[Rfam]
RNA sequence: CCUGAGACUAGAGCCACAUCCUGACGUGGUUACUUGUCCUGGUGAGCUAAAGUUCUCAAAGAGGAUCUGCUGGUCACUGGUGGGGGAUCAGAGGAUCACUGGUGGGGGCUGUCAGUACCCCUGUUAGUGCCCAUCAGAAACAUGU
Numbered sequence: 001c002c003u004g005a006g007a008c009u010a011g012a013g014c015c016a017c018a019u020c021c022u023g024a025c026g027u028g029g030u031u032a033c034u035u036g037u038c039c040u041g042g043u044g045a046g047c048u049a050a051a052g053u054u055c056u057c058a059a060a061g062a063g064g065a066u067c068u069g070c071u072g073g074u075c076a077c078u079g080g081u082g083g084g085g086g087a088u089c090a091g092a093g094g095a096u097c098a099c100u101g102g103u104g105g106g107g108g109c110u111g112u113c114a115g116u117a118c119c120c121c122u123g124u125u126a127g128u129g130c131c132c133a134u135c136a137g138a139a140a141c142a143u144g145u
Base pairs, nucleotide, nucleotide: 003058004057005056006055007053008052009051012048013047015046017044018043019042020041023038024037025036026035070137071136072135073134074133075129076128077127078126079125080124082122083121084120085119086118
About this RNA:
The record is a 145-nucleotide RNA sequence from Nannospalax galili, which matches "Small nucleolar RNA SNORA3/SNORA45 family" in Rfam. The literature on the family includes a 2001 paper in EMBO J by Huttenhofer et al., "RNomics: an experimental approach that identifies 201 candidates for novel, small, non-messenger RNAs in mouse". The family's RNA type in Rfam is H/ACA-box small nucleolar RNA. The members of this family belong to the H/ACA class of snoRNAs which are thought to guide the sites of modification of uridines to pseudouridines. This family includes mouse snoMBI-28 and human homologues ACA3 (SNORA3) and ACA3-2 (SNORA45). Both ACA3 and ACA3-2 share the same host gene. MBI-28, ACA3 and ACA3-2 are all predicted to guide the pseudouridylation of residues in 28S rRNA. The family has 6 seed sequences and 2,080 matches in Rfam 15.1.